[Rfam]
RNA: FMN riboswitch aptamer (RFN element)
Nucleotides: 142
Base pairs, nucleotide, nucleotide: 004139005138006137007136008135009134010133017042018041019040044122045121046112047111048073049072050071051070068110069109076088077087078086092108093107094106095105096104114125115124116123
Number, partner (000 for none) and nucleotide at each position: 001000a002000u003000a004139c005138u006137u007136c008135u009134u010133c011000a012000g013000g014000g015000u016000a017042g018041g019040g020000u021000a022000a023000g024000g025000g026000a027000g028000a029000a030000a031000u032000u033000c034000c035000c036000a037000a038000u039000u040019c041018c042017u043000a044122a045121c046112c047111g048073g049072c050071g051070g052000u053000g054000a055000u056000g057000g058000u059000u060000a061000a062000u063000c064000c065000u066000a067000a068110g069109c070051c071050c072049g073048c074000g075000a076088a077087c078086c079000c080000u081000u082000u083000u084000u085000g086078g087077g088076u089000u090000g091000a092108u093107c094106c095105g096104g097000u098000g099000a100000a101000a102000a103000u104096c105095c106094g107093g108092a109069g110068c111047c112046g113000a114125c115124g116123g117000u118000a119000u120000a121045g122044u123116c124115c125114g126000g127000a128000u129000g130000g131000g132000a133010g134009a135008a136007g137006a138005a139004g140000c141000c142000u